[Rfam]
RNA sequence: AGCUAGUGGAAACCAGCUACCACUUUAAAAAAGCGGGGCAAAACCGAAAAGCCAAAUGAGUAGGAUAACC
Numbered sequence: 001a002g003c004u005a006g007u008g009g010a011a012a013c014c015a016g017c018u019a020c021c022a023c024u025u026u027a028a029a030a031a032a033g034c035g036g037g038g039c040a041a042a043a044c045c046g047a048a049a050a051g052c053c054a055a056a057u058g059a060g061u062a063g064g065a066u067a068a069c070c
Stems, first nucleotide, its partner, number of pairs: 006023004037053003044064002